[Rfam]
RNA sequence: GGUAGUAGCAAAUAUUCAAAUGAGAACUUUGAAGACUGAAGUGGGGAAAGGUUCCACGUCAACAGCAGUUGGACGUGGGUUAGUCGAUCCUAAGAGAUGGGGAAGCUCCGUUUCAACGAGCCUGGUUUAUUUAUAUUUCAGGCCGCCAUCGAAAGGGAAUCCGGUUAAUAUUCCGGAACCUGGAUGUGGAUUCUUCACGGCAACGUAACUGAAUGUGGAGACGUCGGCGUGGGCCCUGGGAGGAGUUAUCUUUUCUUCUUAACAGCUUAUCACCCCGGAAUUGGUUUAUCCGGAGAUGGGGUCUUAUGGCUGGAAGAGGCGGGCACCUUGCCCGCUCCGGUGCGCCCACGACGGCCCUUGAAAAUCCACAGGAAGGAAUAGUUUUCACGCCAGGUCGUACUGAUAACCGCAGCAGGUCUCCAAGGUGAACAGCCUCUAGUUGA
Numbered sequence: 001g002g003u004a005g006u007a008g009c010a011a012a013u014a015u016u017c018a019a020a021u022g023a024g025a026a027c028u029u030u031g032a033a034g035a036c037u038g039a040a041g042u043g044g045g046g047a048a049a050g051g052u053u054c055c056a057c058g059u060c061a062a063c064a065g066c067a068g069u070u071g072g073a074c075g076u077g078g079g080u081u082a083g084u085c086g087a088u089c090c091u092a093a094g095a096g097a098u099g100g101g102g103a104a105g106c107u108c109c110g111u112u113u114c115a116a117c118g119a120g121c122c123u124g125g126u127u128u129a130u131u132u133a134u135a136u137u138u139c140a141g142g143c144c145g146c147c148a149u150c151g152a153a154a155g156g157g158a159a160u161c162c163g164g165u166u167a168a169u170a171u172u173c174c175g176g177a178a179c180c181u182g183g184a185u186g187u188g189g190a191u192u193c194u195u196c197a198c199g200g201c202a203a204c205g206u207a208a209c210u211g212a213a214u215g216u217g218g219a220g221a222c223g224u225c226g227g228c229g230u231g232g233g234c235c236c237u238g239g240g241a242g243g244a245g246u247u248a249u250c251u252u253u254u255c256u257u258c259u260u261a262a263c264a265g266c267u268u269a270u271c272a273c274c275c276c277g278g279a280a281u282u283g284g285u286u287u288a289u290c291c292g293g294a295g296a297u298g299g300g301g302u303c304u305u306a307u308g309g310c311u312g313g314a315a316g317a318g319g320c321g322g323g324c325a326c327c328u329u330g331c332c333c334g335c336u337c338c339g340g341u342g343c344g345c346c347c348a349c350g351a352c353g354g355c356c357c358u359u360g361a362a363a364a365u366c367c368a369c370a371g372g373a374a375g376g377a378a379u380a381g382u383u384u385u386c387a388c389g390c391c392a393g394g395u396c397g398u399a400c401u402g403a404u405a406a407c408c409g410c411a412g413c414a415g416g417u418c419u420c421c422a423a424g425g426u427g428a429a430c431a432g433c434c435u436c437u438a439g440u441u442g443a
Stems, first nucleotide, its partner, number of pairs: 015033006034441004043421004049401002054078006063071002085397003089156002094150002096112003100109003120143006160177005180393004185389005190383001197206003214370006223355004228350007236340003239259006263312005272302006281293004319335007407416002423435004
Shown here is a 443-nucleotide part of an RNA from Zygotorulaspora mrakii, a member of the family "Eukaryotic large subunit ribosomal RNA".
The organism belongs to Zygotorulaspora, within Eukaryota.
The match comes from Rfam's covariance-model search (3346 bits).